A member of the RNA family "Bacterial large subunit ribosomal RNA" from Prauserella flavalba, 230 nucleotides of a longer RNA. The organism belongs to Prauserella, within Bacteria. The base pairs follow the family's consensus structure, which is taken from published work.

[Rfam]
RNA sequence: GAGUUCGUGCUGCGUGGCGAGGUUAACCCGUGUGGGGUAGCCGUAGCGAAAGCGAGUCUGAAGAGGGCGUGUUAGUUGCGUGGUCGAGACCCGAAGCGGGGUGAUCUACCCAUGGCCAGGCUGAAGCGCCGGUAAGACGGCGUGGAGGGCCGAACCCACCAGGGUUGAAAACCUGGGGGAUGAGUUGUGGGUAGGGGUGAAAGGCCAAUCAAACUCCGUGAUAGCUGGUU
Numbered sequence: 001g002a003g004u005u006c007g008u009g010c011u012g013c014g015u016g017g018c019g020a021g022g023u024u025a026a027c028c029c030g031u032g033u034g035g036g037g038u039a040g041c042c043g044u045a046g047c048g049a050a051a052g053c054g055a056g057u058c059u060g061a062a063g064a065g066g067g068c069g070u071g072u073u074a075g076u077u078g079c080g081u082g083g084u085c086g087a088g089a090c091c092c093g094a095a096g097c098g099g100g101g102u103g104a105u106c107u108a109c110c111c112a113u114g115g116c117c118a119g120g121c122u123g124a125a126g127c128g129c130c131g132g133u134a135a136g137a138c139g140g141c142g143u144g145g146a147g148g149g150c151c152g153a154a155c156c157c158a159c160c161a162g163g164g165u166u167g168a169a170a171a172c173c174u175g176g177g178g179g180a181u182g183a184g185u186u187g188u189g190g191g192u193a194g195g196g197g198u199g200a201a202a203g204g205c206c207a208a209u210c211a212a213a214c215u216c217c218g219u220g221a222u223a224g225c226u227g228g229u230u
Stems, first nucleotide, its partner, number of pairs: 005087003009084010021042004027036003046053002056068004090228002093225001097218006106194011117182001119151004126143006155179003159176005196206003